RNA sequence: AAAUAGUUAAGGAUAUGGGUUGUUCUAGCUUUAGCGGCUGAAGAGGACCUUCAUUGGUCCUAGAACGGCCUGAGGUAGAGGGGUUUUAGUCGGUAGGUCCGAGGUUUUCUUCUUCGGGAAUCCGACACUACCCAGUCGUACGGGCGGCUGGGUGUCUUUUGAUGAUUUUCCCACUUCCACGAAA
Numbered sequence: 001a002a003a004u005a006g007u008u009a010a011g012g013a014u015a016u017g018g019g020u021u022g023u024u025c026u027a028g029c030u031u032u033a034g035c036g037g038c039u040g041a042a043g044a045g046g047a048c049c050u051u052c053a054u055u056g057g058u059c060c061u062a063g064a065a066c067g068g069c070c071u072g073a074g075g076u077a078g079a080g081g082g083g084u085u086u087u088a089g090u091c092g093g094u095a096g097g098u099c100c101g102a103g104g105u106u107u108u109c110u111u112c113u114u115c116g117g118g119a120a121u122c123c124g125a126c127a128c129u130a131c132c133c134a135g136u137c138g139u140a141c142g143g144g145c146g147g148c149u150g151g152g153u154g155u156c157u158u159u160u161g162a163u164g165a166u167u168u169u170c171c172c173a174c175u176u177c178c179a180c181g182a183a184a
Stems, first nucleotide, its partner, number of pairs: 022048005054183002057180002074178002077175002080171003089126005098118005103110002128154001130153005
RNA: R2 RNA element
Organism: Agrilus planipennis